[Rfam]
RNA sequence: AGUUCAACAGGAGUCUCACUUUGUUUCUCUACCCUUGCUUUGUAAGGGUCCCUGGUGUUUUUAAAUGAUUGUUUAUUCUCAUUUUC
Numbered sequence: 001a002g003u004u005c006a007a008c009a010g011g012a013g014u015c016u017c018a019c020u021u022u023g024u025u026u027c028u029c030u031a032c033c034c035u036u037g038c039u040u041u042g043u044a045a046g047g048g049u050c051c052c053u054g055g056u057g058u059u060u061u062u063a064a065a066u067g068a069u070u071g072u073u074u075a076u077u078c079u080c081a082u083u084u085u086c
Stems, first nucleotide, its partner, number of pairs: 009079004016064001018062001025055002031049008
RNA: Stem loopII regulatory element in POLB
Organism: Gulo gulo